[Rfam]
RNA sequence: UGUCCCUUCGGAAAAAACACAGUCCGGUCGGUAGUCCGGGCACAGGCGGCUGUCCCGCCUGUCAGUAACCUGCCUCCUAAGGUUGUCCCUCCGAAUGGAAUUUUUU
Dot-bracket structure: ...((.(((((..........((((((........))))))((((((((.....)))))))).........((((....)))).......))))).))........

A member of the RNA family "azaaromatic riboswitch aptamer (yjdF RNA)" from Clostridium sp. CAG:169, 106 nucleotides long.